[Rfam]
RNA sequence: UCAUGAGUUCAAGGCCAUAGUAGAAGAGCUCAGAGCACAGUCCUGCCUGAUUCCAACGAAUCUGUGAAUUCUGCU
Numbered sequence: 001u002c003a004u005g006a007g008u009u010c011a012a013g014g015c016c017a018u019a020g021u022a023g024a025a026g027a028g029c030u031c032a033g034a035g036c037a038c039a040g041u042c043c044u045g046c047c048u049g050a051u052u053c054c055a056a057c058g059a060a061u062c063u064g065u066g067a068a069u070u071c072u073g074c075u
Stems, first nucleotide, its partner, number of pairs: 013043002015040001019075007026038001028036001047064001049062005

The record is a 75-nucleotide RNA from Crocodylus porosus, which matches "Mammalian CPEB3 ribozyme" in Rfam.